[Rfam]
RNA: Enterobacterial sRNA STnc240
RNA sequence: UUUUACUGGGGCAAAAUACGCCGCCUGCAAAAUGAGACAAACCGACGCUUUACUGGGUGUCGGUUAUUUUUUUGC
Numbered sequence: 001u002u003u004u005a006c007u008g009g010g011g012c013a014a015a016a017u018a019c020g021c022c023g024c025c026u027g028c029a030a031a032a033u034g035a036g037a038c039a040a041a042c043c044g045a046c047g048c049u050u051u052a053c054u055g056g057g058u059g060u061c062g063g064u065u066a067u068u069u070u071u072u073u074g075c
Stems, first nucleotide, its partner, number of pairs: 011021002040065008